[Rfam]
RNA: ZMP/ZTP riboswitch aptamer (pfl RNA motif)
RNA sequence: UACGCGGGCCGUGACUGGCGCUGAGGUGGAGCACCACCGGGGAGCGGUCCGCGCCGGUUGCCGCGCGCCUGGGCGAGGAGA
Numbered sequence: 001u002a003c004g005c006g007g008g009c010c011g012u013g014a015c016u017g018g019c020g021c022u023g024a025g026g027u028g029g030a031g032c033a034c035c036a037c038c039g040g041g042g043a044g045c046g047g048u049c050c051g052c053g054c055c056g057g058u059u060g061c062c063g064c065g066c067g068c069c070u071g072g073g074c075g076a077g078g079a080g081a
Base pairs, nucleotide, nucleotide: 003053004052005051006050007049008048009047010046011045012044015041016040017069018068019067020066021065026037027036028035029034058076059075060074061073062072